[Rfam]
RNA sequence: AAUGCACCAAUUUGUAAGUCGCUCUGGAUAAGAGGGUCUGCUAAAUGACUAAAA
Dot-bracket structure: ............((((...(.((((.....)))).)..))).)...........
The family of this 54-nucleotide RNA sequence from Salmo salar is "UnaL2 LINE 3' element".
It scores 63 bits against the family's covariance model.
It is annotated as a cis-regulatory element.